Notes: A member of the RNA family "MIR6217 microRNA precursor family" from Miscanthus lutarioriparius, 228 nucleotides long. It scores 153 bits against the family's covariance model. The source organism's lineage runs through Eukaryota, Tracheophyta, Poales, Saccharinae and Miscanthus.
[Rfam]
RNA sequence: UGACCAUAGAAUAACUUAUUAUGUGGUCACUUUGAGUUACGAUAAUUACCAUGCUAAUUUAUGAGAUUACAGUAACUCCUUACUAAGUGAUUUACUAUAACAUUAUCGUAAAUAUCAUCCUGAGUUGUAGUAACACGAGUAUCGUAAAUACAUAUUCAUGUUAUCGUAAAUUGGUAUAAAAUAUUAUCGUAAAUCAAGGUGGCUAUAGAAUAAGUUAUAUAUAGGAUG
Number, nucleotide and partner (000 for none) at each position: 001u228002g227003a000004c225005c224006a000007u000008a000009g220010a000011a218012u217013a216014a215015c214016u213017u212018a211019u210020u209021a000022u207023g206024u205025g204026g203027u202028c201029a200030c199031u198032u197033u196034g000035a000036g000037u192038u191039a190040c189041g188042a187043u186044a185045a184046u183047u000048a000049c000050c000051a177052u176053g175054c174055u173056a172057a171058u170059u169060u168061a167062u166063g000064a000065g165066a164067u163068u000069a161070c160071a159072g157073u000074a155075a000076c000077u000078c000079c000080u147081u146082a145083c144084u000085a000086a000087g142088u141089g140090a000091u138092u137093u132094a131095c130096u129097a128098u127099a126100a125101c124102a000103u122104u000105a000106u000107c000108g116109u000110a000111a000112a000113u000114a000115u000116c108117a000118u000119c000120c000121u000122g103123a000124g101125u100126u099127g098128u097129a096130g095131u094132a093133a000134c000135a000136c000137g092138a091139g000140u089141a088142u087143c000144g083145u082146a081147a080148a000149u000150a000151c000152a000153u000154a000155u074156u000157c072158a000159u071160g070161u069162u000163a067164u066165c065166g062167u061168a060169a059170a058171u057172u056173g055174g054175u053176a052177u051178a000179a000180a000181a000182u000183a046184u045185u044186a043187u042188c041189g040190u039191a038192a037193a000194u000195c000196a033197a032198g031199g030200u029201g028202g027203c026204u025205a024206u023207a022208g000209a020210a019211u018212a017213a016214g015215u014216u013217a012218u011219a000220u009221a000222u000223a000224g005225g004226a000227u002228g001